[Rfam]
RNA sequence: CUGAUACAGUGAUGAGAGCAUAGUUCAGCAGAUGAAACCAUGAAGAACAAGAGCAUUUGUCUUUCGCUCCUAGCUGAUGUAUCAC
Numbered sequence: 001c002u003g004a005u006a007c008a009g010u011g012a013u014g015a016g017a018g019c020a021u022a023g024u025u026c027a028g029c030a031g032a033u034g035a036a037a038c039c040a041u042g043a044a045g046a047a048c049a050a051g052a053g054c055a056u057u058u059g060u061c062u063u064u065c066g067c068u069c070c071u072a073g074c075u076g077a078u079g080u081a082u083c084a085c
Base pairs, nucleotide, nucleotide: 004082005081006080007079008078
The family of this 85-nucleotide sequence from Dissostichus mawsoni is "Small nucleolar RNA snR60/Z15/Z230/Z193/J17". The family has 23 seed sequences and 3,592 matches in Rfam 15.1. NCBI's taxonomy places the organism under Eukaryota, Deuterostomia, Acanthomorphata, Euacanthomorphacea, Dissostichus. The literature on the family includes a 1999 paper in Science by Lowe and Eddy, "A computational screen for methylation guide snoRNAs in yeast". Rfam classes the family as a C/D-box small nucleolar RNA. The pairing is the family consensus, mapped onto this sequence.